RNA: Na+ riboswitch aptamer (DUF1646)
RNA sequence: GGUUGGGCGUAAGCUUCAAGGAUCUAGUUCUUCAAGGGGUGAGAAGAA
Numbered sequence: 001g002g003u004u005g006g007g008c009g010u011a012a013g014c015u016u017c018a019a020g021g022a023u024c025u026a027g028u029u030c031u032u033c034a035a036g037g038g039g040u041g042a043g044a045a046g047a048a
Stems, first nucleotide, its partner, number of pairs: 003019003006015003028048006